A member of the RNA family "TPP riboswitch aptamer (THI element)" from Salipiger sp. CCB-MM3, 119 nucleotides long. A search with the family's covariance model found it, with a score of 69 bits. The family's consensus secondary structure is taken from published work. NCBI's taxonomy places the organism under Bacteria, Alphaproteobacteria, Rhodobacterales, Roseobacteraceae, Salipiger.
[Rfam]
RNA sequence: GCCACUCACCCGGGGGGUCCCGACAAGGGGCUGAGAUUCUGCUGGCGUUCGCGCAGCGCAGUGACCCGACGAACCUGAUCCAGUUCAUACUGGCGUAGGGAUGGUGCACUGGCGUUGCC
Numbered sequence: 001g002c003c004a005c006u007c008a009c010c011c012g013g014g015g016g017g018u019c020c021c022g023a024c025a026a027g028g029g030g031c032u033g034a035g036a037u038u039c040u041g042c043u044g045g046c047g048u049u050c051g052c053g054c055a056g057c058g059c060a061g062u063g064a065c066c067c068g069a070c071g072a073a074c075c076u077g078a079u080c081c082a083g084u085u086c087a088u089a090c091u092g093g094c095g096u097a098g099g100g101a102u103g104g105u106g107c108a109c110u111g112g113c114g115u116u117g118c119c
Base pairs, nucleotide, nucleotide: 007106008105009104010103011068012067013066014065016062017031018030019029020028021027039061040060041059042058074099075098076097077096080093081092082091083090